RNA sequence: AAUACACUUUAUUGUACAUUGCUCUGGAUAAGAGCGUCUGCUAAAUGACUGUAA
Numbered sequence: 001a002a003u004a005c006a007c008u009u010u011a012u013u014g015u016a017c018a019u020u021g022c023u024c025u026g027g028a029u030a031a032g033a034g035c036g037u038c039u040g041c042u043a044a045a046u047g048a049c050u051g052u053a054a
Stems, first nucleotide, its partner, number of pairs: 013043001014041003020036006
A member of the RNA family "UnaL2 LINE 3' element" from Conger conger, 54 nucleotides long. The family's consensus secondary structure is taken from published work. The match comes from Rfam's covariance-model search (60 bits). Rfam describes the family as follows. The eel long interspersed element (LINE) UnaL2 and its partner short interspersed element (SINE) share a conserved 3' tail containing a stem-loop that is critical for their retrotransposition.